[Rfam]
RNA sequence: GGCGAACACGGAGAAAAGCAGGAGCAACGCGCUUCUCGCCCACGGUGCAAGCCGCCCCUCGCGGGGUGGCGAAACUCUCAGGCCAAUGACUCCGGGGAGACC
Numbered sequence: 001g002g003c004g005a006a007c008a009c010g011g012a013g014a015a016a017a018g019c020a021g022g023a024g025c026a027a028c029g030c031g032c033u034u035c036u037c038g039c040c041c042a043c044g045g046u047g048c049a050a051g052c053c054g055c056c057c058c059u060c061g062c063g064g065g066g067u068g069g070c071g072a073a074a075c076u077c078u079c080a081g082g083c084c085a086a087u088g089a090c091u092c093c094g095g096g097g098a099g100a101c102c
Stems, first nucleotide, its partner, number of pairs: 007096001009094005020036004038083003042078001045077001047075001051070006
Annotation:
Rfam assigns this 102-nucleotide RNA sequence from Saccharopolyspora sp. ASAGF58 to the family "Glycine riboswitch aptamer". A search with the family's covariance model found it, with a score of 41 bits.